Alphaproteobacteria transfer-messenger RNA: a 368-nucleotide sequence from Thalassospira sp. HJ.
The organism belongs to Thalassospira, within Bacteria.
The family is grouped with related families in Rfam's "tRNA clan".
From the family's description: Bacterial tmRNA, also known as 10Sa RNA or SsrA, is named for its dual tRNA and mRNA-like properties.
Gene Ontology term of the family: RNA catabolic process.
RNA sequence: CCCCUUGUGAAACGGGGGGCAUUUGACCUAUAUAGGGGCUGUCGGGGUAACCCGACUACGGCGCUAAACUGCGUGACAGAAUAGGCUUUACGGACCCGGGGGCGGUACCCGGCGGCUCCACCAAAUUUAUCGGUUGUCCGACUCAGACAAUCUUCGUGGGGCCGAAAUAGGAUCGACGUGAGCAGUAAAAGUCAAUGUGGGCGCUCGGCAUGGUACCACCGCAUCGGGCCAAUGUUUGUAAAUGCAAACGACAACAAUGCUCCGGUUGCUGCUGCCGCCUAAGCGGUACUAGCACCAAAGCGAAAUUCCGGUUGCCGGGAGCGGUAAUUUGGUGGGGGACGGGGCACCUAGCAACAGAACGCCCCACU
Dot-bracket structure: ........................................(((((......)))))...(((((......(((((((........(((.(((...(((((.......)))))(((((((((..................................)))))))))............))))))........)))).)))..)))))[[[..(((..((.]]]....)).))).......................................................................................................[[[...((((..]]]............))))...
Numbered sequence: 001c002c003c004c005u006u007g008u009g010a011a012a013c014g015g016g017g018g019g020c021a022u023u024u025g026a027c028c029u030a031u032a033u034a035g036g037g038g039c040u041g042u043c044g045g046g047g048u049a050a051c052c053c054g055a056c057u058a059c060g061g062c063g064c065u066a067a068a069c070u071g072c073g074u075g076a077c078a079g080a081a082u083a084g085g086c087u088u089u090a091c092g093g094a095c096c097c098g099g100g101g102g103c104g105g106u107a108c109c110c111g112g113c114g115g116c117u118c119c120a121c122c123a124a125a126u127u128u129a130u131c132g133g134u135u136g137u138c139c140g141a142c143u144c145a146g147a148c149a150a151u152c153u154u155c156g157u158g159g160g161g162c163c164g165a166a167a168u169a170g171g172a173u174c175g176a177c178g179u180g181a182g183c184a185g186u187a188a189a190a191g192u193c194a195a196u197g198u199g200g201g202c203g204c205u206c207g208g209c210a211u212g213g214u215a216c217c218a219c220c221g222c223a224u225c226g227g228g229c230c231a232a233u234g235u236u237u238g239u240a241a242a243u244g245c246a247a248a249c250g251a252c253a254a255c256a257a258u259g260c261u262c263c264g265g266u267u268g269c270u271g272c273u274g275c276c277g278c279c280u281a282a283g284c285g286g287u288a289c290u291a292g293c294a295c296c297a298a299a300g301c302g303a304a305a306u307u308c309c310g311g312u313u314g315c316c317g318g319g320a321g322c323g324g325u326a327a328u329u330u331g332g333u334g335g336g337g338g339a340c341g342g343g344g345c346a347c348c349u350a351g352c353a354a355c356a357g358a359a360c361g362c363c364c365c366a367c368u
Stems, first nucleotide, its partner, number of pairs: 041056005060205005071198003074194004086182003090179003096112005113164009206221003211231003216227002335349003341365004